[Rfam]
RNA sequence: CUAGGAGAGGUUCGUGAACUCCCUCUAUAAAAAACUAAAAAAAA
Number, nucleotide and partner (000 for none) at each position: 001c000002u000003a000004g000005g000006a026007g025008a024009g023010g022011u000012u000013c000014g000015u037016g036017a000018a000019c000020u000021c000022c010023c009024u008025c007026u006027a000028u000029a000030a000031a000032a000033a000034a000035c000036u016037a015038a000039a000040a000041a000042a000043a000044a000

The record is a 44-nucleotide RNA sequence from Paenibacillus sp. N3.4, which matches "PreQ1 (pre queuosine) riboswitch aptamer" in Rfam. A search with the family's covariance model found it, with a score of 54 bits. Gene Ontology term of the family: queuosine biosynthetic process. The organism belongs to Paenibacillus, within Bacteria.